[Rfam]
RNA sequence: GGGGACAUGAAAAUGCCCCCAAAUCAGUGUGUGAAUAGCGAAAUCCUAUUAGCCGGGAACGCGGUUCGUGAAGC
Numbered sequence: 001g002g003g004g005a006c007a008u009g010a011a012a013a014u015g016c017c018c019c020c021a022a023a024u025c026a027g028u029g030u031g032u033g034a035a036u037a038g039c040g041a042a043a044u045c046c047u048a049u050u051a052g053c054c055g056g057g058a059a060c061g062c063g064g065u066u067c068g069u070g071a072a073g074c
Stems, first nucleotide, its partner, number of pairs: 001019004006015003032068005038062003044058004
The record is a 74-nucleotide RNA sequence, which matches "L13-Bacteroidia ribosomal protein leader" in Rfam. Rfam classes the family as a cis-regulatory leader. Rfam's curators put it in the seed alignment. On this family, see Eckert and Weinberg, BMC Microbiol 2020: "Discovery of 20 novel ribosomal leader candidates in bacteria and archaea".